[Rfam]
RNA sequence: AGAUCUGUGGUCUGUGAUGUAUUUCUGUGUCUGAUUAAAACAUGAGGCAUUUUACAGUACUCGUCACUACCACUGAGACCACAGUGUU
Numbered sequence: 001a002g003a004u005c006u007g008u009g010g011u012c013u014g015u016g017a018u019g020u021a022u023u024u025c026u027g028u029g030u031c032u033g034a035u036u037a038a039a040a041c042a043u044g045a046g047g048c049a050u051u052u053u054a055c056a057g058u059a060c061u062c063g064u065c066a067c068u069a070c071c072a073c074u075g076a077g078a079c080c081a082c083a084g085u086g087u088u
Base pairs, nucleotide, nucleotide: 001088002087005084006083007082008081009080010079011078012077